A member of the RNA family "traJ-II RNA" from Azoarcus taiwanensis, 103 nucleotides long. The family's RNA type in Rfam is cis-regulatory element. It scores 96 bits against the family's covariance model. Taxonomically the source falls in Azoarcus (Bacteria, Pseudomonadota, Betaproteobacteria, Rhodocyclales).

[Rfam]
RNA sequence: GGGCAGGAUGGGUGAAGUAGGCCCACCACGCAAGCGUGUUGGCCUCUUCACUGAACCUUAUUCGCACCUGCGGUGCUCAACGGUCAUCCUGCUCUGCGAGGCC
Numbered sequence: 001g002g003g004c005a006g007g008a009u010g011g012g013u014g015a016a017g018u019a020g021g022c023c024c025a026c027c028a029c030g031c032a033a034g035c036g037u038g039u040u041g042g043c044c045u046c047u048u049c050a051c052u053g054a055a056c057c058u059u060a061u062u063c064g065c066a067c068c069u070g071c072g073g074u075g076c077u078c079a080a081c082g083g084u085c086a087u088c089c090u091g092c093u094c095u096g097c098g099a100g101g102c103c
Stems, first nucleotide, its partner, number of pairs: 001094009012051006020044002025040001027038004055084003064076005

Overview: Rfam 15.1 lists 174 matches to the family in 172 species.